[Rfam]
RNA sequence: ACCGGUGAUUGCCAUCAGCGAGGUAUAGAGUUCCUACGGUGAUCGUUAGAAAUUUGUAGGAACUUCAUACCGUGCUCUUGGAUAGCCGAU
Numbered sequence: 001a002c003c004g005g006u007g008a009u010u011g012c013c014a015u016c017a018g019c020g021a022g023g024u025a026u027a028g029a030g031u032u033c034c035u036a037c038g039g040u041g042a043u044c045g046u047u048a049g050a051a052a053u054u055u056g057u058a059g060g061a062a063c064u065u066c067a068u069a070c071c072g073u074g075c076u077c078u079u080g081g082a083u084a085g086c087c088g089a090u
Base pairs, nucleotide, nucleotide: 012081013080014079017076018075019074020073022071023070024069025068026067028065029064030063031062032061033060034059035058036057037056
Dot-bracket structure: ...........(((..((((.(((((.((((((((((..................)))))))))).))))).))))..))).........
This 90-nucleotide sequence from Anopheles sinensis belongs to the Rfam family "mir-276 microRNA precursor family". The base pairs follow the family's consensus structure, which was predicted with RNAalifold.